[Rfam]
RNA sequence: AAGAGUUUCUCUGUUCUCUAAAAUAAAAACAGAGUGGUGGAGUCAUUAUGACCCUCUUAGAGUUUCCAGUUUCUCUAAAAAACUGGUGGCGAGCCUGCUC
Numbered sequence: 001a002a003g004a005g006u007u008u009c010u011c012u013g014u015u016c017u018c019u020a021a022a023a024u025a026a027a028a029a030c031a032g033a034g035u036g037g038u039g040g041a042g043u044c045a046u047u048a049u050g051a052c053c054c055u056c057u058u059a060g061a062g063u064u065u066c067c068a069g070u071u072u073c074u075c076u077a078a079a080a081a082a083c084u085g086g087u088g089g090c091g092a093g094c095c096u097g098c099u100c
Base pairs, nucleotide, nucleotide: 009034010033011032012031013030014029015028059076060075061074062073066086067085068084069083070082071081
Annotation:
A member of the RNA family "wcaG RNA", 100 nucleotides long. Rfam's curators put it in the seed alignment. Pairs were carried over by alignment from the consensus structure, which is taken from published work.